[Rfam]
RNA sequence: GGGGUGUGUGAUCCCACAGCCCCUGGGGUGUGUGACCCCACAGCUCCUGGGGUGUGUGAUCCCACAGCCCCU
Numbered sequence: 001g002g003g004g005u006g007u008g009u010g011a012u013c014c015c016a017c018a019g020c021c022c023c024u025g026g027g028g029u030g031u032g033u034g035a036c037c038c039c040a041c042a043g044c045u046c047c048u049g050g051g052g053u054g055u056g057u058g059a060u061c062c063c064a065c066a067g068c069c070c071c072u
Stems, first nucleotide, its partner, number of pairs: 001071005015058004021052008031042004
RNA: mir-3689 microRNA precursor family